Notes
Small nucleolar RNA snoR74: a 129-nucleotide RNA from Eucalyptus grandis. The literature on the family includes a 2002 paper in Curr Biol by Marker et al., "Experimental RNomics: identification of 140 candidates for small non-messenger RNAs in the plant Arabidopsis thaliana". Gene Ontology terms of the family: RNA processing and nucleolus. The family's consensus secondary structure was predicted with WAR.
RNA sequence: AAAAAAGCAGGGCCUCAUUGCCUUUUGUGGAUGAAGCUCUCGUAUACUUCAGGAAAAUCAAUUUCAUCAUUAUUGGGUGAACCUCUGUACAAUGUAAUGACUGAUGGUUCAGUAAAUGAUGGAACAAUU
Numbered sequence: 001a002a003a004a005a006a007g008c009a010g011g012g013c014c015u016c017a018u019u020g021c022c023u024u025u026u027g028u029g030g031a032u033g034a035a036g037c038u039c040u041c042g043u044a045u046a047c048u049u050c051a052g053g054a055a056a057a058u059c060a061a062u063u064u065c066a067u068c069a070u071u072a073u074u075g076g077g078u079g080a081a082c083c084u085c086u087g088u089a090c091a092a093u094g095u096a097a098u099g100a101c102u103g104a105u106g107g108u109u110c111a112g113u114a115a116a117u118g119a120u121g122g123a124a125c126a127a128u129u
Base pairs, nucleotide, nucleotide: 005049006048007047011038012037015034016033017032063123064122065121066120067119068118069117070116071115078111079110080109081108082107083106